[Rfam]
RNA sequence: AGGCGAGGACGACCUCCCCCUGACGGGCUUCUGGCCGGGACGACCCGG
Numbered sequence: 001a002g003g004c005g006a007g008g009a010c011g012a013c014c015u016c017c018c019c020c021u022g023a024c025g026g027g028c029u030u031c032u033g034g035c036c037g038g039g040a041c042g043a044c045c046c047g048g
Stems, first nucleotide, its partner, number of pairs: 002019002005016004035048005
Background:
This 48-nucleotide RNA sequence from Pararhodobacter aggregans belongs to the Rfam family "Guanidine-II riboswitch aptamer (mini-ykkC)". From the family's description: Simpler in structure and has fewer highly conserved nucleotide positions than the ykkC-yxkD leader. The family's consensus secondary structure is taken from published work. Taxonomically the source falls in Pararhodobacter (Bacteria, Pseudomonadati, Pseudomonadota, Rhodobacterales). A search with the family's covariance model found it, with a score of 40 bits.